[Rfam]
This 300-nucleotide RNA sequence from Formicarius rufipectus belongs to the Rfam family "Metazoan signal recognition particle RNA". On this family, see Rosenblad et al., Nucleic Acids Res 2003: "SRPDB: Signal Recognition Particle Database". Rfam's curators write: The signal recognition particle (SRP) is a universally conserved ribonucleoprotein. Lineage of the source: Eukaryota > Metazoa > Archosauria > Passeriformes > Formicarius. By type it is a non-coding RNA gene.
RNA sequence: GCCGGGCGCGGUGGCGCACGCCUGUAGUCCCAGCUGCCGGGGAGGCUGAGCCCGACGGAUCGCUUGAGCCCAGGAGUUCUGGGCUGCAGCGCGCUGUGCCGAGCGGGCGUCCAAGCUAAGGCCGCCAUCAAUAUGGUGACCCGCGGGGAGCUGCGGGACACCAGGUUGACUAAGGAGGGGUGAACCGGCCCAGGUCGGAGACGGAGCAGGUCAAAGCUCCCGUGGCGAUCAGUAGCGGGAUCGCGCCUGUGAACAGCCCCUGCAGCCUAGCCUGGGCAACACAGAGACACGCGGGCUCCU
Dot-bracket structure: ((((((((.(......).)))))....(((..........)))))).(((((((.....((.((...(((((((....(((((((((((.(.(((((.(...((((((((((..((((.((.((((((((((.(((((.(((((((....))))))).))))).)))).(...)..(((((.....((((....(((....)))....))))...))))).)))))).))..)))).))...))))))))).)))))).)))))))))))))))))).....)).))....)))))))..
Numbered sequence: 001g002c003c004g005g006g007c008g009c010g011g012u013g014g015c016g017c018a019c020g021c022c023u024g025u026a027g028u029c030c031c032a033g034c035u036g037c038c039g040g041g042g043a044g045g046c047u048g049a050g051c052c053c054g055a056c057g058g059a060u061c062g063c064u065u066g067a068g069c070c071c072a073g074g075a076g077u078u079c080u081g082g083g084c085u086g087c088a089g090c091g092c093g094c095u096g097u098g099c100c101g102a103g104c105g106g107g108c109g110u111c112c113a114a115g116c117u118a119a120g121g122c123c124g125c126c127a128u129c130a131a132u133a134u135g136g137u138g139a140c141c142c143g144c145g146g147g148g149a150g151c152u153g154c155g156g157g158a159c160a161c162c163a164g165g166u167u168g169a170c171u172a173a174g175g176a177g178g179g180g181u182g183a184a185c186c187g188g189c190c191c192a193g194g195u196c197g198g199a200g201a202c203g204g205a206g207c208a209g210g211u212c213a214a215a216g217c218u219c220c221c222g223u224g225g226c227g228a229u230c231a232g233u234a235g236c237g238g239g240a241u242c243g244c245g246c247c248u249g250u251g252a253a254c255a256g257c258c259c260c261u262g263c264a265g266c267c268u269a270g271c272c273u274g275g276g277c278a279a280c281a282c283a284g285a286g287a288c289a290c291g292c293g294g295g296c297u298c299c300u
Stems, first nucleotide, its partner, number of pairs: 001046003004023005010017001028043003048298007060287002063284002068277007079270011091258001093257005099251001103250008111239002115236004120230002123227006129168004134163005140157007170174001177220005187212004195204003